Shown here is a 199-nucleotide RNA from Kryptolebias marmoratus, a member of the family "Small nucleolar RNA SNORD17". The literature on the family includes a 2001 paper in EMBO J by Huttenhofer et al., "RNomics: an experimental approach that identifies 201 candidates for novel, small, non-messenger RNAs in mouse". The family's RNA type in Rfam is C/D-box small nucleolar RNA.

RNA sequence: GUGAUGUGAUGAACCGGUUUAUCCAUUCUCUGAGUGCCGCCGUCGGGUUCCGGUCUCGGCUCCUGCCUCCGUUCUGGAGCGGGGGCGUCUCGGCGGCGUUGCUGGAGUCGUCUGGCGUUCUGUCAGAUAACAGCCGGCAGCGUCUCGGGGGAAGGACCGGGACUCGACUGCUGCCAAGACGACUUGUCGUUCUGAUCAC
Number, nucleotide and partner (000 for none) at each position: 001g000002u000003g000004a000005u000006g000007u000008g000009a000010u198011g197012a196013a000014c194015c000016g000017g191018u000019u189020u000021a000022u000023c186024c000025a184026u000027u182028c181029u000030c178031u177032g000033a000034g174035u173036g000037c000038c000039g171040c170041c000042g168043u167044c166045g165046g164047g163048u162049u161050c160051c159052g158053g157054u156055c155056u152057c151058g000059g086060c085061u084062c083063c082064u081065g080066c000067c079068u078069c077070c076071g000072u000073u000074c000075u000076g070077g069078a068079g067080c065081g064082g063083g062084g061085g060086c059087g000088u000089c149090u148091c147092g146093g145094c000095g143096g000097c000098g000099u000100u139101g138102c136103u000104g000105g000106a000107g131108u130109c000110g128111u127112c126113u125114g124115g123116c122117g121118u000119u000120c000121u117122g116123u115124c114125a113126g112127a111128u110129a000130a108131c107132a000133g000134c000135c000136g102137g000138c101139a100140g000141c000142g000143u095144c000145u093146c092147g091148g090149g089150g000151g057152a056153a000154g000155g055156a054157c053158c052159g051160g050161g049162a048163c047164u046165c045166g044167a043168c042169u000170g040171c039172u000173g035174c034175c000176a000177a031178g030179a000180c000181g028182a027183c000184u025185u000186g023187u000188c000189g019190u000191u017192c000193u000194g014195a000196u012197c011198a010199c000
The snoRNA HBI-43 belongs to the C/D family of snoRNAs, guiding 2'O-ribose methylation at position U3797 of the 28S rRNA. Pseudouridylation in position U3797 is predicted to be guided by the H/ACA snoRNA ACA48.